[Rfam]
RNA sequence: UGCACUGCACGGUAUCUGCAGUUUCUUCCUGCUGGGUGUUCAAAGGACAGUGCAAUAUAAAUUCAGUAUGUGGCAUCAUUGAUUUUCUUGUCUUUGUGCACGUUAAACCUGGUAUUUUUAUUGGUACAGUA
Numbered sequence: 001u002g003c004a005c006u007g008c009a010c011g012g013u014a015u016c017u018g019c020a021g022u023u024u025c026u027u028c029c030u031g032c033u034g035g036g037u038g039u040u041c042a043a044a045g046g047a048c049a050g051u052g053c054a055a056u057a058u059a060a061a062u063u064c065a066g067u068a069u070g071u072g073g074c075a076u077c078a079u080u081g082a083u084u085u086u087c088u089u090g091u092c093u094u095u096g097u098g099c100a101c102g103u104u105a106a107a108c109c110u111g112g113u114a115u116u117u118u119u120a121u122u123g124g125u126a127c128a129g130u131a
Base pairs, nucleotide, nucleotide: 002053003052004051005050006049007048015046016045017044018039019038020030021029056120057119059117060116061115062114063112064111065110066109073099074098075097076096
RNA: Small nucleolar RNA SNORA8
Organism: Rhinolophus ferrumequinum